[Rfam]
RNA sequence: CCUCCUUUUCUUGGCGGGCUUCGGGUGCGUGGUUCCGGACCCCGUUAUGUACGGAGGCAGAGGGAAAGGACUCCGGUCCCCUCGGCGUCAUGUCUUCGGUGCCGGCGGUUUCCCGUCUGCCGGUUCUAUCCUCAAACGCCGGGACAAGA
Number, nucleotide and partner (000 for none) at each position: 001c057002c056003u055004c054005c053006u000007u000008u000009u000010c000011u000012u000013g000014g000015c044016g043017g042018g041019c000020u039021u000022c037023g036024g035025g034026u000027g000028c000029g000030u000031g000032g000033u000034u025035c024036c023037g022038g000039a020040c000041c018042c017043c016044g015045u000046u000047a000048u000049g000050u000051a000052c000053g005054g004055a003056g002057g001058c000059a000060g000061a000062g000063g000064g000065a000066a000067a000068g000069g000070a000071c000072u000073c000074c000075g000076g000077u000078c000079c000080c000081c000082u000083c141084g140085g139086c138087g137088u136089c000090a000091u000092g000093u000094c000095u000096u000097c000098g000099g000100u000101g000102c123103c122104g121105g120106c119107g118108g117109u000110u000111u000112c000113c000114c000115g000116u000117c108118u107119g106120c105121c104122g103123g102124u000125u000126c000127u000128a000129u000130c000131c000132u000133c000134a000135a000136a088137c087138g086139c085140c084141g083142g000143g000144a000145c000146a000147a000148g000149a000
A member of the RNA family "Small nucleolar RNA SNORA57" from Chrysochloris asiatica, 149 nucleotides long. A reference for the family is Vitali et al. (2003), "Identification of 13 novel human modification guide RNAs", Nucleic Acids Res. By type it is an H/ACA-box small nucleolar RNA. A search with the family's covariance model found it, with a score of 169 bits. The family's consensus secondary structure was predicted with PFOLD. Taxonomically the source falls in Chrysochloris (Eukaryota, Opisthokonta, Chordata, Theria).